[Rfam]
RNA sequence: UAGGUGUAGUGAGUGGUUGCUUUUUAAAAGAGGAAAGUCCGAGCUACUUUGGGAUAGGAUUCCAUUUAACUAAUGGCUAGAGCAAUCUAAGGGAAAGUGCAACAGAAAACAAACCGCUAAAUAGCAAGGGUGAAAAGGUAGGGUAAGAGCCUACCGAAAAUGUAGUAAUACAUUUUGCUUUGCAAACCCAAUCCGUAGCAAAAAGGGCAAGGUUAAUAUCCCAAAUUUUAGCCCUUUGCUAGAUUUUUAAUGCAAAUUAAAAACAAGAUAAAUAACCACAUAAACAGAACUCGGCUUAUAGCUACACCUAAAUU
Numbered sequence: 001u002a003g004g005u006g007u008a009g010u011g012a013g014u015g016g017u018u019g020c021u022u023u024u025u026a027a028a029a030g031a032g033g034a035a036a037g038u039c040c041g042a043g044c045u046a047c048u049u050u051g052g053g054a055u056a057g058g059a060u061u062c063c064a065u066u067u068a069a070c071u072a073a074u075g076g077c078u079a080g081a082g083c084a085a086u087c088u089a090a091g092g093g094a095a096a097g098u099g100c101a102a103c104a105g106a107a108a109a110c111a112a113a114c115c116g117c118u119a120a121a122u123a124g125c126a127a128g129g130g131u132g133a134a135a136a137g138g139u140a141g142g143g144u145a146a147g148a149g150c151c152u153a154c155c156g157a158a159a160a161u162g163u164a165g166u167a168a169u170a171c172a173u174u175u176u177g178c179u180u181u182g183c184a185a186a187c188c189c190a191a192u193c194c195g196u197a198g199c200a201a202a203a204a205g206g207g208c209a210a211g212g213u214u215a216a217u218a219u220c221c222c223a224a225a226u227u228u229u230a231g232c233c234c235u236u237u238g239c240u241a242g243a244u245u246u247u248u249a250a251u252g253c254a255a256a257u258u259a260a261a262a263a264c265a266a267g268a269u270a271a272a273u274a275a276c277c278a279c280a281u282a283a284a285c286a287g288a289a290c291u292c293g294g295c296u297u298a299u300a301g302c303u304a305c306a307c308c309u310a311a312a313u314u
Stems, first nucleotide, its partner, number of pairs: 001310010011299001013279006020030004035297003039294005044198004053222001057194005062076005077091001078089004092189002097187002099183003114129002116125003137155006156178001157176008202237007210229001215227003244263008

Background: Bacterial RNase P class A: a 314-nucleotide RNA sequence from Helicobacter apodemus. The family's consensus secondary structure is taken from published work. Lineage of the source: Bacteria > Campylobacterota > Campylobacterales > Helicobacteraceae > Helicobacter. It scores 252 bits against the family's covariance model.